This 60-nucleotide sequence from Kandelia obovata belongs to the Rfam family "Plastid-psbA-3 3UTR RNA". Plastid psbA-3 is a non-coding RNA (ncRNA) present in plastids. It is one of the family's seed sequences.

[Rfam]
RNA sequence: AAAAGGAGCAAUACCCAAUUUCUUGUUCUAUCAAGAAGCUUGGUAUUGCUCCCCUUUUUA
Numbered sequence: 001a002a003a004a005g006g007a008g009c010a011a012u013a014c015c016c017a018a019u020u021u022c023u024u025g026u027u028c029u030a031u032c033a034a035g036a037a038g039c040u041u042g043g044u045a046u047u048g049c050u051c052c053c054c055u056u057u058u059u060a
Stems, first nucleotide, its partner, number of pairs: 002055001005052011020037006